Description: Shown here is a 104-nucleotide RNA sequence from Paenibacillus roseus, a member of the family "Purine riboswitch aptamer". The match comes from Rfam's covariance-model search (69 bits). Pairs were carried over by alignment from the consensus structure, which is taken from published work. The source organism's lineage runs through Bacteria, Bacillota, Bacilli, Caryophanales and Paenibacillus.
RNA sequence: AGGUAAAAACUUCAUAGAACUCGUAUAUUUUUGGGAAUAUGGCCCAUAAGUUUCUACGGGAUGACCAUUUUAAUCAUCCGACUAUGAGUGAAAGCGCAACAGGG
Numbered sequence: 001a002g003g004u005a006a007a008a009a010c011u012u013c014a015u016a017g018a019a020c021u022c023g024u025a026u027a028u029u030u031u032u033g034g035g036a037a038u039a040u041g042g043c044c045c046a047u048a049a050g051u052u053u054c055u056a057c058g059g060g061a062u063g064a065c066c067a068u069u070u071u072a073a074u075c076a077u078c079c080g081a082c083u084a085u086g087a088g089u090g091a092a093a094g095c096g097c098a099a100c101a102g103g104g
Stems, first nucleotide, its partner, number of pairs: 019089007029049002032046004059079006